Shown here is a 95-nucleotide RNA from Aspergillus sclerotialis, a member of the family "tRNA". The match comes from Rfam's covariance-model search (45 bits).
RNA sequence: GACAGUGUGGGUGAGUGGUUAUACCGCAGGUCUUGAAUCACCAAAUUUGAUAACCUGUGCCUUCGGGCUCGCAAGUUCGAAUCUUGUCGCUGUCG
Numbered sequence: 001g002a003c004a005g006u007g008u009g010g011g012u013g014a015g016u017g018g019u020u021a022u023a024c025c026g027c028a029g030g031u032c033u034u035g036a037a038u039c040a041c042c043a044a045a046u047u048u049g050a051u052a053a054c055c056u057g058u059g060c061c062u063u064c065g066g067g068c069u070c071g072c073a074a075g076u077u078c079g080a081a082u083c084u085u086g087u088c089g090c091u092g093u094c095g
Stems, first nucleotide, its partner, number of pairs: 001094007010025004027057005071087005
The source organism's lineage runs through Eukaryota, Opisthokonta, Fungi, leotiomyceta and Aspergillus subgen. Polypaecilum.